The family of this 58-nucleotide RNA from Rhizobium sp. Leaf371 is "sul1 RNA". Taxonomically the source falls in Rhizobium (Bacteria, Pseudomonadati, Alphaproteobacteria, Hyphomicrobiales).
[Rfam]
RNA sequence: AACGGACCCGGGUGUGAUCCCCGGGUGGCUCUUCCGGCCGCCGAUCCGCCGGACAACG
Dot-bracket structure: .....((((((.........))))))......((((((.........)))))).....